This 123-nucleotide RNA sequence from Clostridium tyrobutyricum belongs to the Rfam family "Group II catalytic intron D1-D4-2". Taxonomically the source falls in Clostridium tyrobutyricum (Bacteria, Bacillati, Clostridia, Eubacteriales). It scores 61 bits against the family's covariance model. Gene Ontology term of the family: Group II intron splicing. About the family: Group II introns are found in rRNA, tRNA and mRNA of organelles in fungi, plants and protists, and also in mRNA in bacteria. A reference for the family is Bonen and Vogel (2001), "The ins and outs of group II introns", Trends Genet.
[Rfam]
RNA sequence: GAGGACAGGUUACUCGAAACUGCUGUGUAGGUAGAAGUUUCAAAUCAUUGAAACCAAGGUGUUGUUGUCAAAAGCAGUGGUAUUGAACGUUGGGGAAAAGGCAAAACAGACAAUUUCGUUAGA
Number, nucleotide and partner (000 for none) at each position: 001g015002a014003g013004g000005a011006c000007a000008g000009g000010u000011u005012a000013c003014u002015c001016g041017a040018a039019a038020c037021u036022g000023c034024u033025g032026u031027g000028u000029a000030g000031g026032u025033a024034g023035a000036a021037g020038u019039u018040u017041c016042a000043a000044a000045u123046c122047a000048u095049u094050g000051a000052a000053a000054c093055c092056a091057a090058g084059g083060u000061g081062u080063u079064g000065u077066u076067g075068u074069c000070a000071a000072a000073a000074g068075c067076a066077g065078u000079g063080g062081u061082a000083u059084u058085g000086a000087a000088c000089g000090u057091u056092g055093g054094g049095g048096a000097a000098a000099a000100g120101g119102c118103a000104a116105a115106a000107c000108a000109g000110a000111c000112a000113a000114u000115u105116u104117c000118g102119u101120u100121a000122g046123a045